The family of this 52-nucleotide RNA from Trichocoleus sp. FACHB-832 is "Nitrogen stress-induced RNA 1". The pairing is the family consensus, mapped onto this sequence. It is annotated as a small RNA. The family has 17 seed sequences and 962 matches in Rfam 15.1. It scores 53 bits against the family's covariance model.
RNA sequence: UGGUAGAUGCACCCUGGUUUGGCUCUAGAGUUAAUCUCUAGGGCUUUUUUUU
Numbered sequence: 001u002g003g004u005a006g007a008u009g010c011a012c013c014c015u016g017g018u019u020u021g022g023c024u025c026u027a028g029a030g031u032u033a034a035u036c037u038c039u040a041g042g043g044c045u046u047u048u049u050u051u052u
Stems, first nucleotide, its partner, number of pairs: 002013003022044009